[Rfam]
The family of this 72-nucleotide sequence from Leptonychotes weddellii is "Small nucleolar RNA SNORD73". It scores 75 bits against the family's covariance model. NCBI's taxonomy places the organism under Eukaryota, Craniata, Amniota, Eutheria, Leptonychotes.

Nucleotides: 072
Base pairs, nucleotide, nucleotide: 001072002071003070004069
Number, partner (000 for none) and nucleotide at each position: 001072a002071a003070u004069a005000g006000a007000u008000g009000a010000u011000g012000g013000c014000a015000a016000g017000a018000u019000g020000u021000u022000u023000c024000g025000g026000u027000c028000c029000c030000a031000g032000a033000u034000a035000a036000u037000g038000u039000c040000c041000a042000c043000u044000g045000a046000u047000a048000a049000c050000a051000c052000u053000g054000u055000u056000a057000a058000c059000a060000u061000u062000u063000u064000u065000c066000u067000g068000a069004u070003g071002u072001u
Rfam classes the family as a C/D-box small nucleolar RNA.
Pairs were carried over by alignment from the consensus structure, which was predicted with PFOLD.